[Rfam]
RNA sequence: GGAGGAUCAACAGGAGCACCCUGAGAUCACAUGAGGAAACCCAAAAUCAAAGACACUCACUGUUUGUUGCUGUGGUGUAUUCAUGUGAUCUCAGGUCGCCCCUGCUGAACUUCC
Numbered sequence: 001g002g003a004g005g006a007u008c009a010a011c012a013g014g015a016g017c018a019c020c021c022u023g024a025g026a027u028c029a030c031a032u033g034a035g036g037a038a039a040c041c042c043a044a045a046a047u048c049a050a051a052g053a054c055a056c057u058c059a060c061u062g063u064u065u066g067u068u069g070c071u072g073u074g075g076u077g078u079a080u081u082c083a084u085g086u087g088a089u090c091u092c093a094g095g096u097c098g099c100c101c102c103u104g105c106u107g108a109a110c111u112u113c114c
Base pairs, nucleotide, nucleotide: 007108008107011104012103013102014101016099017098023092024091025090026089027088028087029086030085031084032083033082034081